The family of this 24-nucleotide sequence from Nostoc commune is "CRISPR RNA direct repeat element". Rfam links the family to the GO term defense response. The family's consensus secondary structure was predicted with WAR. Lineage of the source: Bacteria > Cyanophyceae > Nostocales > Nostocaceae > Nostoc commune. It scores 35 bits against the family's covariance model.
[Rfam]
RNA sequence: GGCUAAGUCCGCCUGCGCGGACUA
Numbered sequence: 001g002g003c004u005a006a007g008u009c010c011g012c013c014u015g016c017g018c019g020g021a022c023u024a
Stems, first nucleotide, its partner, number of pairs: 006023007